[Rfam]
RNA sequence: CACGUCAGCGUGCUUUGCUGAAGUGGACACAAAUUGCGCUUCAGAGGACGCGAUUUGUUACCAUGUCAGUAAAGCGCGCUUACAUGG
Numbered sequence: 001c002a003c004g005u006c007a008g009c010g011u012g013c014u015u016u017g018c019u020g021a022a023g024u025g026g027a028c029a030c031a032a033a034u035u036g037c038g039c040u041u042c043a044g045a046g047g048a049c050g051c052g053a054u055u056u057g058u059u060a061c062c063a064u065g066u067c068a069g070u071a072a073a074g075c076g077c078g079c080u081u082a083c084a085u086g087g
Base pairs, nucleotide, nucleotide: 001086002085004083005082007080008079009078010077011076012075013074014073015072016071017070018069019068020067021066023064024063025062026061029058030057031056032055033054034053035052036051037050038049040047041046
The family of this 87-nucleotide sequence from Gossypium raimondii is "MIR7486 microRNA precursor family". The organism belongs to Gossypium, within Eukaryota. Pairs were carried over by alignment from the consensus structure, which was predicted with RNAalifold. Rfam 15.1 lists 10,132 matches to the family in 36 species. A search with the family's covariance model found it, with a score of 69 bits. Its family is annotated with RISC complex and miRNA-mediated post-transcriptional gene silencing in the Gene Ontology.